The family of this 63-nucleotide RNA from Streptococcus pneumoniae is "Streptococcus sRNA Spd-sr07". Pairs were carried over by alignment from the consensus structure, which was predicted with WAR. On this family, see Tsui et al., J Bacteriol 2010: "Identification and characterization of noncoding small RNAs in Streptococcus pneumoniae serotype 2 strain D39".

[Rfam]
RNA sequence: UACAGAAGAUUUGGAAUAAGCAAAAAGCUUUAAAUCAAUAGUCUAAACUGCUUGAUUUAAAGC
Numbered sequence: 001u002a003c004a005g006a007a008g009a010u011u012u013g014g015a016a017u018a019a020g021c022a023a024a025a026a027g028c029u030u031u032a033a034a035u036c037a038a039u040a041g042u043c044u045a046a047a048c049u050g051c052u053u054g055a056u057u058u059a060a061a062g063c
Stems, first nucleotide, its partner, number of pairs: 027063012039050004
Dot-bracket structure: ..........................((((((((((((((((....)))).))))))))))))